[Rfam]
RNA sequence: AGCCGCACCUCAAGGUGAAAGAAAAACGUUGGAUGUAGUGUUGGUAAUCGUGCAAGGGCACGGCUGAAGACAGAGAGAAACAAAAAGCAGACAA
Numbered sequence: 001a002g003c004c005g006c007a008c009c010u011c012a013a014g015g016u017g018a019a020a021g022a023a024a025a026a027c028g029u030u031g032g033a034u035g036u037a038g039u040g041u042u043g044g045u046a047a048u049c050g051u052g053c054a055a056g057g058g059c060a061c062g063g064c065u066g067a068a069g070a071c072a073g074a075g076a077g078a079a080a081c082a083a084a085a086a087g088c089a090g091a092c093a094a
Stems, first nucleotide, its partner, number of pairs: 006017004039072003047065001050061004
A member of the RNA family "RT-17 RNA", 94 nucleotides long.
The sequence is in the family's curated seed alignment.
Pairs were carried over by alignment from the consensus structure, which is taken from published work.